A member of the RNA family "Small nucleolar RNA Z161/Z228" from Rhododendron williamsianum, 100 nucleotides long. The base pairs follow the family's consensus structure, which was predicted with PFOLD. It is annotated as a C/D-box small nucleolar RNA. The literature on the family includes a 2003 paper in Nucleic Acids Res by Chen et al., "The high diversity of snoRNAs in plants: identification and comparative study of 120 snoRNA genes from Oryza sativa".

[Rfam]
RNA sequence: AUGCCAGAUGAUGAAUUUGGAUUAAAAUUUCUCACGACGGUCGUCUGAGGCACCCCAGGGUGUCAGAUUGAUUGAGAAAGCUCCAACAGUACUGAUGGUU
Numbered sequence: 001a002u003g004c005c006a007g008a009u010g011a012u013g014a015a016u017u018u019g020g021a022u023u024a025a026a027a028u029u030u031c032u033c034a035c036g037a038c039g040g041u042c043g044u045c046u047g048a049g050g051c052a053c054c055c056c057a058g059g060g061u062g063u064c065a066g067a068u069u070g071a072u073u074g075a076g077a078a079a080g081c082u083c084c085a086a087c088a089g090u091a092c093u094g095a096u097g098g099u100u
Stems, first nucleotide, its partner, number of pairs: 001100001004097001051062003
Dot-bracket structure: (..(..............................................(((......)))..................................)..)